[Rfam]
RNA sequence: CAAGGGCACGCCGAGCUUGAUGUUUUCUUGACAUAAGUCAAAUUGCCAACCUCCACUGGGUGGGUCAAGGUUGAGGUAUAGAAUCCUAUUCGCUCCUGAUAGGAGAAAUUCUAUAUUGCUUAUAUAUGUGCUUACGCACAUAUAUAAAUGCUCAUGCAAAACUGCAUGAAUGCCCCUAAGGGAUGC
Numbered sequence: 001c002a003a004g005g006g007c008a009c010g011c012c013g014a015g016c017u018u019g020a021u022g023u024u025u026u027c028u029u030g031a032c033a034u035a036a037g038u039c040a041a042a043u044u045g046c047c048a049a050c051c052u053c054c055a056c057u058g059g060g061u062g063g064g065u066c067a068a069g070g071u072u073g074a075g076g077u078a079u080a081g082a083a084u085c086c087u088a089u090u091c092g093c094u095c096c097u098g099a100u101a102g103g104a105g106a107a108a109u110u111c112u113a114u115a116u117u118g119c120u121u122a123u124a125u126a127u128g129u130g131c132u133u134a135c136g137c138a139c140a141u142a143u144a145u146a147a148a149u150g151c152u153c154a155u156g157c158a159a160a161a162c163u164g165c166a167u168g169a170a171u172g173c174c175c176c177u178a179a180g181g182g183a184u185g186c
Stems, first nucleotide, its partner, number of pairs: 009022002012019001029040004047073006053063004075117010085103006120147012152169007174182003
RNA: Alfalfa mosaic virus coat protein binding (CPB) RNA
Organism: Alfamovirus AMV